[Rfam]
Annotation:
Bacterial large signal recognition particle RNA: a 265-nucleotide RNA from Heyndrickxia ginsengihumi. It is annotated as a non-coding RNA gene. A search with the family's covariance model found it, with a score of 248 bits.
RNA sequence: CCGCGCUAGGUGGGGAGGUAGCGGUGCCCUGUACUCGCAAUCCGCUCUAGCGAGACUGAACUCCUUUCUGAGGCUAACUGUUUGUAGGGCCUGCCUUAAGUAAGUGGUGUUGACGCCUGGGUCCUGCGCAAUGGAAAUCCAUGAACCAUGUCAGGUCCGGAAGGAAGCAGCAUUAAGUGGAUCUUUCCAUGUGCCGCAGGGCAGCCUGGGUCGAGCUAACUGCUUAAGUAACGCCUAUGAAGGUUAGUCGAAGAAAGGUGCGCGG
Numbered sequence: 001c002c003g004c005g006c007u008a009g010g011u012g013g014g015g016a017g018g019u020a021g022c023g024g025u026g027c028c029c030u031g032u033a034c035u036c037g038c039a040a041u042c043c044g045c046u047c048u049a050g051c052g053a054g055a056c057u058g059a060a061c062u063c064c065u066u067u068c069u070g071a072g073g074c075u076a077a078c079u080g081u082u083u084g085u086a087g088g089g090c091c092u093g094c095c096u097u098a099a100g101u102a103a104g105u106g107g108u109g110u111u112g113a114c115g116c117c118u119g120g121g122u123c124c125u126g127c128g129c130a131a132u133g134g135a136a137a138u139c140c141a142u143g144a145a146c147c148a149u150g151u152c153a154g155g156u157c158c159g160g161a162a163g164g165a166a167g168c169a170g171c172a173u174u175a176a177g178u179g180g181a182u183c184u185u186u187c188c189a190u191g192u193g194c195c196g197c198a199g200g201g202c203a204g205c206c207u208g209g210g211u212c213g214a215g216c217u218a219a220c221u222g223c224u225u226a227a228g229u230a231a232c233g234c235c236u237a238u239g240a241a242g243g244u245u246a247g248u249c250g251a252a253g254a255a256a257g258g259u260g261c262g263c264g265g
Stems, first nucleotide, its partner, number of pairs: 001265006009057003012030004017025001019023001034054005063258007072249005079243001081241008092230002096227006104220002106217003115211008123200006129191002132189005137182006148173004156165003